[Rfam]
RNA: 7SK RNA
Organism: Monodon monoceros
RNA sequence: GGAUGUGAGGGUGAUCUGGCUGCGACAUCUGUCACCCCAUUGAUCACCAGGGUUGAUUUGGCUGAUCUGGAUGGCUAGGCGGGUCUCCCCUUUCUCCCUCACCACUCCAUGUGCAUCCCUCUUGAAGCUGCAUGCUUGGUUGAAGAGGAUGACCUUGCCCAAUAGAGGGGGACUGUUCUUCCAUCAAGGGUAUAUGAGUAGCUGCGCUCCCCUGCUAGAACCUGCAAACAAGCUCUCAGGGUCAUUUGUAGGAGAACAUAGGGUAGUCAAGCUUCCAAUACUCCACACACAUCCAAAUGAGCUGCUGCAUGUGGCAGUCUGCCUUUCUUU
Numbered sequence: 001g002g003a004u005g006u007g008a009g010g011g012u013g014a015u016c017u018g019g020c021u022g023c024g025a026c027a028u029c030u031g032u033c034a035c036c037c038c039a040u041u042g043a044u045c046a047c048c049a050g051g052g053u054u055g056a057u058u059u060g061g062c063u064g065a066u067c068u069g070g071a072u073g074g075c076u077a078g079g080c081g082g083g084u085c086u087c088c089c090c091u092u093u094c095u096c097c098c099u100c101a102c103c104a105c106u107c108c109a110u111g112u113g114c115a116u117c118c119c120u121c122u123u124g125a126a127g128c129u130g131c132a133u134g135c136u137u138g139g140u141u142g143a144a145g146a147g148g149a150u151g152a153c154c155u156u157g158c159c160c161a162a163u164a165g166a167g168g169g170g171g172a173c174u175g176u177u178c179u180u181c182c183a184u185c186a187a188g189g190g191u192a193u194a195u196g197a198g199u200a201g202c203u204g205c206g207c208u209c210c211c212c213u214g215c216u217a218g219a220a221c222c223u224g225c226a227a228a229c230a231a232g233c234u235c236u237c238a239g240g241g242u243c244a245u246u247u248g249u250a251g252g253a254g255a256a257c258a259u260a261g262g263g264u265a266g267u268c269a270a271g272c273u274u275c276c277a278a279u280a281c282u283c284c285a286c287a288c289a290c291a292u293c294c295a296a297a298u299g300a301g302c303u304g305c306u307g308c309a310u311g312u313g314g315c316a317g318u319c320u321g322c323c324u325u326u327c328u329u330u
Base pairs, nucleotide, nucleotide: 001108002107003106005102006101007100008099009098010097011096013093014092018090019089024087025086027084028083029082030081031080032079033078035074036073037070038069039068042067043066044065045064047061048060116171117170118168119167120166121165122139123138124137125136127135128134140162141161142160147158149156201272202271203270207266208265210263211262212261213260214259222254223253225251228249229248230247231246232245295330296329297328299325300324301323303321304318305317306316307315308314